The family of this 184-nucleotide RNA sequence from Turnera subulata is "MIR168 microRNA precursor family". The literature on the family includes a 2002 paper in Cell by Rhoades et al., "Prediction of plant microRNA targets". The organism belongs to Turnera, within Eukaryota. Gene Ontology terms of the family: RISC complex and miRNA-mediated post-transcriptional gene silencing.
RNA sequence: UAGCCGGCGGUCUCUAAUUCGCUUGGUGCAGGUCGGGAACUGAUUGGCUGGCAGGCAUCUUAUGCGAUAGUGAUGAUGAUGAUGAUUGAUUCACAUAUAAAGAUAUUGUGGUUGGUGGUGGUUUUGGGCGUAGUAGCGAAUUGGAUCCCGCCUUGCAUCAACUGAAUCGGAGACCUUGCAGGCC
Dot-bracket structure: ............((..((((..((((((((((.(((((.((((((.............................................................................................)))))).))))).))))))))))..))))..)).............